This 82-nucleotide RNA from Steinernema carpocapsae belongs to the Rfam family "SmY spliceosomal RNA". Rfam classes the family as a spliceosomal small nuclear RNA. The organism belongs to Steinernema, within Eukaryota. The family's consensus secondary structure is taken from published work.
RNA sequence: UCAUUUUUGAUCAUCAUUCCAGGGCCUUUUUACAAGACCCGAAGUACAAUUUUUGGAGACCCAGUUCAUUAGAACUCGGGUU
Numbered sequence: 001u002c003a004u005u006u007u008u009g010a011u012c013a014u015c016a017u018u019c020c021a022g023g024g025c026c027u028u029u030u031u032a033c034a035a036g037a038c039c040c041g042a043a044g045u046a047c048a049a050u051u052u053u054u055g056g057a058g059a060c061c062c063a064g065u066u067c068a069u070u071a072g073a074a075c076u077c078g079g080g081u082u
Stems, first nucleotide, its partner, number of pairs: 022040003026036003059081004063076005